Shown here is a 138-nucleotide RNA sequence from Phocoena sinus, a member of the family "Small nucleolar RNA SNORA47". Rfam links the family to the GO terms nucleolus and RNA processing. By type it is an H/ACA-box small nucleolar RNA.
RNA sequence: CGGAGGGCUGAGAAGGUGAGGCAGCUCUGAACCAUGCUGUCUUCCACCGGUUAAGACCUCCGAGAGUGAAGGCUUGCCAGGGCAUAGGAGGUCCCUCUGCCGCCCUCAGAGGGGCAGCAGUCUGCUGGCCAACACUUG
Number, nucleotide and partner (000 for none) at each position: 001c000002g061003g060004a059005g058006g057007g000008c000009u000010g000011a000012g000013a000014a000015g048016g047017u046018g045019a042020g041021g040022c039023a038024g037025c036026u000027c000028u000029g000030a000031a000032c000033c000034a000035u000036g025037c024038u023039g022040u021041c020042u019043u000044c000045c018046a017047c016048c015049g000050g000051u000052u000053a000054a000055g000056a000057c006058c005059u004060c003061c002062g000063a000064g000065a000066g000067u000068g000069a000070a000071g000072g000073c000074u000075u000076g000077c000078c000079a000080g000081g130082g129083c128084a000085u000086a126087g125088g000089a123090g122091g121092u000093c000094c000095c000096u000097c117098u116099g115100c114101c113102g000103c112104c111105c000106u000107c000108a000109g000110a000111g104112g103113g101114g100115c099116a098117g097118c000119a000120g000121u091122c090123u089124g000125c087126u086127g000128g083129c082130c081131a000132a000133c000134a000135c000136u000137u000138g000
NCBI's taxonomy places the organism under Eukaryota, Sarcopterygii, Mammalia, Eutheria, Phocoena.